[Rfam]
RNA sequence: UGGCGCCCGAACAGGGACCUGGACGUGGGGGAAGAAGUGAGGAAGAAGGCACUAAAGUCGGCUGAAAGUAAAAGUGGAAGAAAUUCCUCCGGACGUCGUGGGAGCCUGCCGCAUUGGAACCACAGGUGAGUAACAGUGUCUGAUUAUGGGACAAGAAUUGAGCCAACAUCAAAUUUAUGUAGGGCAAUUAAAAGAGGCCUUAAAAACACGAGGAGUAAAGGUUAAAAGUAAUGAUUUAUUUAAGUUUUUUGAUUUCGUAGAAGAUACCUGCUCUU
Numbered sequence: 001u002g003g004c005g006c007c008c009g010a011a012c013a014g015g016g017a018c019c020u021g022g023a024c025g026u027g028g029g030g031g032a033a034g035a036a037g038u039g040a041g042g043a044a045g046a047a048g049g050c051a052c053u054a055a056a057g058u059c060g061g062c063u064g065a066a067a068g069u070a071a072a073a074g075u076g077g078a079a080g081a082a083a084u085u086c087c088u089c090c091g092g093a094c095g096u097c098g099u100g101g102g103a104g105c106c107u108g109c110c111g112c113a114u115u116g117g118a119a120c121c122a123c124a125g126g127u128g129a130g131u132a133a134c135a136g137u138g139u140c141u142g143a144u145u146a147u148g149g150g151a152c153a154a155g156a157a158u159u160g161a162g163c164c165a166a167c168a169u170c171a172a173a174u175u176u177a178u179g180u181a182g183g184g185c186a187a188u189u190a191a192a193a194g195a196g197g198c199c200u201u202a203a204a205a206a207c208a209c210g211a212g213g214a215g216u217a218a219a220g221g222u223u224a225a226a227a228g229u230a231a232u233g234a235u236u237u238a239u240u241u242a243a244g245u246u247u248u249u250u251g252a253u254u255u256c257g258u259a260g261a262a263g264a265u266a267c268c269u270g271c272u273c274u275u
Stems, first nucleotide, its partner, number of pairs: 006031003013026001015024001038046001084130003087126002092120001094117001098112004136152002139150004159202003162198003209251008219237006260275002263272001265270001
RNA: Mason-Pfizer monkey virus packaging signal